[Rfam]
The record is a 99-nucleotide RNA sequence from Zizania palustris, which matches "Small nucleolar RNA snoR99" in Rfam. On this family, see Marker et al., Curr Biol 2002: "Experimental RNomics: identification of 140 candidates for small non-messenger RNAs in the plant Arabidopsis thaliana". The match comes from Rfam's covariance-model search (74 bits). Its family is annotated with RNA processing and nucleolus in the Gene Ontology. The family has 9 seed sequences and 733 matches in Rfam 15.1.

RNA sequence: UUGUCUGUGGGAUGAAGAAGUCCCAAUAUUUACUGCCGUUUUUUUCACUUUGUCAGCUGAUAGUCAUAUUUUUAGCUGAUCAUUGAAAAUGGGAAAUUC
Numbered sequence: 001u002u003g004u005c006u007g008u009g010g011g012a013u014g015a016a017g018a019a020g021u022c023c024c025a026a027u028a029u030u031u032a033c034u035g036c037c038g039u040u041u042u043u044u045u046c047a048c049u050u051u052g053u054c055a056g057c058u059g060a061u062a063g064u065c066a067u068a069u070u071u072u073u074a075g076c077u078g079a080u081c082a083u084u085g086a087a088a089a090u091g092g093g094a095a096a097u098u099c
Stems, first nucleotide, its partner, number of pairs: 036092005052080008
Pairs were carried over by alignment from the consensus structure, which was predicted with WAR.